Shown here is an 82-nucleotide sequence from Parundibacterium terreum, a member of the family "SAH (S-adenosyl-L-homocysteine) riboswitch aptamer".
The family's consensus secondary structure is taken from published work.
RNA sequence: AAUUCCAAGGAGCGUUGCGACGAAAUUAGCGAGCCCUCUCCAAUUUCGCCAGGCUUGGAACAUGCAACUGCGCUCACGUUAC
Numbered sequence: 001a002a003u004u005c006c007a008a009g010g011a012g013c014g015u016u017g018c019g020a021c022g023a024a025a026u027u028a029g030c031g032a033g034c035c036c037u038c039u040c041c042a043a044u045u046u047c048g049c050c051a052g053g054c055u056u057g058g059a060a061c062a063u064g065c066a067a068c069u070g071c072g073c074u075c076a077c078g079u080u081a082c
Stems, first nucleotide, its partner, number of pairs: 003060006021048006
Dot-bracket structure: ..((((((............((((((................))))))......))))))......................
About this RNA:
The organism belongs to Parundibacterium, within Bacteria.